[Rfam]
RNA sequence: GCCUGUGAUGAAACAUCCAAAUUAUGGAGGUGCAGAGGGCUCCAAGUCCCUGUUUUGCAGGGUGAACCUCUUGUAGCUGCUGCAUUCAGAUGACAUUUCUGGAUUUUCUGAGGC
Number, nucleotide and partner (000 for none) at each position: 001g114002c113003c112004u000005g000006u000007g000008a000009u000010g000011a000012a000013a000014c000015a000016u000017c000018c000019a000020a000021a000022u000023u000024a000025u000026g000027g000028a000029g000030g000031u000032g000033c000034a000035g000036a000037g000038g000039g000040c000041u000042c000043c000044a000045a000046g000047u000048c062049c061050c060051u059052g058053u000054u000055u000056u000057g000058c052059a051060g050061g049062g048063u000064g000065a000066a000067c000068c000069u000070c000071u000072u000073g000074u000075a000076g000077c000078u000079g000080c000081u000082g000083c000084a000085u000086u000087c000088a000089g000090a000091u000092g000093a000094c000095a000096u000097u000098u000099c000100u000101g000102g000103a000104u000105u000106u000107u000108c000109u000110g000111a000112g003113g002114c001
Annotation:
Shown here is a 114-nucleotide RNA sequence from Zingiber officinale, a member of the family "Small nucleolar RNA Z278". Rfam 15.1 lists 1,130 matches to the family in 214 species. snoZ278 is a C/D box small nucleolar RNA. Its methylation guide targets have not been reported. It scores 72 bits against the family's covariance model. For this family Rfam cites "The high diversity of snoRNAs in plants: identification and comparative study of 120 snoRNA genes from Oryza sativa" (Chen et al., Nucleic Acids Res, 2003).